[Rfam]
Annotation:
A member of the RNA family "Fluoride riboswitch aptamer (crcB RNA motif)" from Pedobacter sp. MC2016-24, 67 nucleotides long. The match comes from Rfam's covariance-model search (53 bits). Lineage of the source: Bacteria > Bacteroidota > Sphingobacteriales > Sphingobacteriaceae > Pedobacter.
RNA sequence: UAGUACUACGGAAAUGGUGUCCUUCCGACUAAACCGCCUUACAGAGGCUGAUGGCGCCUACAAUAUC
Numbered sequence: 001u002a003g004u005a006c007u008a009c010g011g012a013a014a015u016g017g018u019g020u021c022c023u024u025c026c027g028a029c030u031a032a033a034c035c036g037c038c039u040u041a042c043a044g045a046g047g048c049u050g051a052u053g054g055c056g057c058c059u060a061c062a063a064u065a066u067c
Stems, first nucleotide, its partner, number of pairs: 010026004016058006036048004